[Rfam]
RNA: Alphaproteobacterial ar15
RNA sequence: AGUUGAUGCACAUGGCGGUUCUCUCCCAGUGCCGCUGCAUUAGCUGUUCCCCUCUGGAGGUUGAAUAACCUUCACACCUUAAAGGGCCCCGUUCAUUCGGUGGCCCUCUUUU
Numbered sequence: 001a002g003u004u005g006a007u008g009c010a011c012a013u014g015g016c017g018g019u020u021c022u023c024u025c026c027c028a029g030u031g032c033c034g035c036u037g038c039a040u041u042a043g044c045u046g047u048u049c050c051c052c053u054c055u056g057g058a059g060g061u062u063g064a065a066u067a068a069c070c071u072u073c074a075c076a077c078c079u080u081a082a083a084g085g086g087c088c089c090c091g092u093u094c095a096u097u098c099g100g101u102g103g104c105c106c107u108c109u110u111u112u
Stems, first nucleotide, its partner, number of pairs: 001045005007039003015035004055074007083107006089100003